The family of this 64-nucleotide sequence from Rattus norvegicus is "U7 small nuclear RNA". Rfam's curators write: Animal histone pre-mRNAs are spliced by a different mechanism than nuclear pre-mRNAs and self-splicing introns. This processing involves the U7 snRNP, which contains only one RNA species: U7. The 5' end of U7 RNA is thought to base-pair to a conserved spacer element downstream of the cleavage site in histone pre-mRNA. This family contains a number of annotated U7 pseudogenes. The literature on the family includes a 2007 paper in Genomics Proteomics Bioinformatics by Marz et al., "U7 snRNAs: a computational survey". The organism belongs to Rattus, within Eukaryota. Pairs were carried over by alignment from the consensus structure, which was predicted with PFOLD.
[Rfam]
RNA sequence: AAUUUUUCAUAGCUCUUUUAGAAUUUUUUCUAACAGGAUUUCUGAACAUUGUGGGAAAUCCCAA
Numbered sequence: 001a002a003u004u005u006u007u008c009a010u011a012g013c014u015c016u017u018u019u020a021g022a023a024u025u026u027u028u029u030c031u032a033a034c035a036g037g038a039u040u041u042c043u044g045a046a047c048a049u050u051g052u053g054g055g056a057a058a059u060c061c062c063a064a
Stems, first nucleotide, its partner, number of pairs: 036061008045052001